[Rfam]
RNA sequence: UCUUCAUUCCUCGUGCUAUCUCACCGAUCAGAGAAGCCAGAGAGAGUGUGCGAAAUGAGGAGA
Numbered sequence: 001u002c003u004u005c006a007u008u009c010c011u012c013g014u015g016c017u018a019u020c021u022c023a024c025c026g027a028u029c030a031g032a033g034a035a036g037c038c039a040g041a042g043a044g045a046g047u048g049u050g051c052g053a054a055a056u057g058a059g060g061a062g063a
Stems, first nucleotide, its partner, number of pairs: 001061007010052001012050006019043004